Description:
The family of this 66-nucleotide RNA sequence from Takifugu flavidus is "Selenocysteine insertion sequence 1". The base pairs follow the family's consensus structure, which is taken from published work. NCBI's taxonomy places the organism under Eukaryota, Actinopterygii, Eurypterygia, Tetraodontiformes, Takifugu.
Nucleotides: 066
Stems, first nucleotide, its partner, number of pairs: 001066005014050007022042001029039003
Number, partner (000 for none) and nucleotide at each position: 001066g002065u003064g004063u005062g006000a007000c008000a009000a010000u011000g012000a013000u014050a015049a016048c017047u018046u019045g020044g021000c022042u023000c024000u025000a026000a027000a028000c029039u030038c031037u032000a033000a034000u035000u036000g037031g038030g039029g040000a041000u042022g043000a044020c045019c046018a047017a048016g049015u050014u051000u052000g053000a054000u055000g056000c057000c058000g059000c060000u061000a062005c063004a064003c065002a066001c